[Rfam]
RNA: Pseudomonas sRNA CrcZ
RNA sequence: ACAAGAACAAUAACAAGCAAUGCACAAGACAAUAAAAAUAAGACGAAUCGACUCACGCAUAAUAAAAACAACACGGCGGAGGCGCAGCUAACUGAUUCUUUUGGAGAGGCGUUGUAUUUGGGGCUUGCCCCACAACCAGGCCGAGAACAACAAAAACUGCCCUAAGGCAGAGCCUGAACUGGUUGGAUCGAAAGGUCAUUGCAACUCAGCGAUCAAAGCAAUCCGUUUGCUCUUGGCUCCCGAUUGGGAGGGUCAUCCUGGGUAAACCAGAUGACAAGGGCGUUUAACAAAAACAAGAAGCCCGAAACCAAUAAUAAAAAUAGAGCACGCAACUAUUCUGGGGGAGCUUCGGCUCCCCUUGUGGUUUCCGGAAUUCGUGUUUUCACUCACCCGCCCCC
Numbered sequence: 001a002c003a004a005g006a007a008c009a010a011u012a013a014c015a016a017g018c019a020a021u022g023c024a025c026a027a028g029a030c031a032a033u034a035a036a037a038a039u040a041a042g043a044c045g046a047a048u049c050g051a052c053u054c055a056c057g058c059a060u061a062a063u064a065a066a067a068a069c070a071a072c073a074c075g076g077c078g079g080a081g082g083c084g085c086a087g088c089u090a091a092c093u094g095a096u097u098c099u100u101u102u103g104g105a106g107a108g109g110c111g112u113u114g115u116a117u118u119u120g121g122g123g124c125u126u127g128c129c130c131c132a133c134a135a136c137c138a139g140g141c142c143g144a145g146a147a148c149a150a151c152a153a154a155a156a157c158u159g160c161c162c163u164a165a166g167g168c169a170g171a172g173c174c175u176g177a178a179c180u181g182g183u184u185g186g187a188u189c190g191a192a193a194g195g196u197c198a199u200u201g202c203a204a205c206u207c208a209g210c211g212a213u214c215a216a217a218g219c220a221a222u223c224c225g226u227u228u229g230c231u232c233u234u235g236g237c238u239c240c241c242g243a244u245u246g247g248g249a250g251g252g253u254c255a256u257c258c259u260g261g262g263u264a265a266a267c268c269a270g271a272u273g274a275c276a277a278g279g280g281c282g283u284u285u286a287a288c289a290a291a292a293a294c295a296a297g298a299a300g301c302c303c304g305a306a307a308c309c310a311a312u313a314a315u316a317a318a319a320a321u322a323g324a325g326c327a328c329g330c331a332a333c334u335a336u337u338c339u340g341g342g343g344g345a346g347c348u349u350c351g352g353c354u355c356c357c358c359u360u361g362u363g364g365u366u367u368c369c370g371g372a373a374u375u376c377g378u379g380u381u382u383u384c385a386c387u388c389a390c391c392c393g394c395c396c397c398c
Base pairs, nucleotide, nucleotide: 049084050083052081053080054079099218100217101216102215103214113211114210115209133185134184135183136182137181138180139179157170158169159168160167161166237250238249239248240247274378275377277375278303279302280301281300323367324366325365326364340359341358342357343356344355345354346353347352